[Rfam]
RNA sequence: ACGAAUUGAUGAUAAGAUUUCAUUAGUCUGUCAAUCCCCUGAUCCAUUUUAAUGGUGUGAUGACACAAUGAUUCUCGACAGGUUCUGAUCGU
Numbered sequence: 001a002c003g004a005a006u007u008g009a010u011g012a013u014a015a016g017a018u019u020u021c022a023u024u025a026g027u028c029u030g031u032c033a034a035u036c037c038c039c040u041g042a043u044c045c046a047u048u049u050u051a052a053u054g055g056u057g058u059g060a061u062g063a064c065a066c067a068a069u070g071a072u073u074c075u076c077g078a079c080a081g082g083u084u085c086u087g088a089u090c091g092u
Base pairs, nucleotide, nucleotide: 001092002091003090004089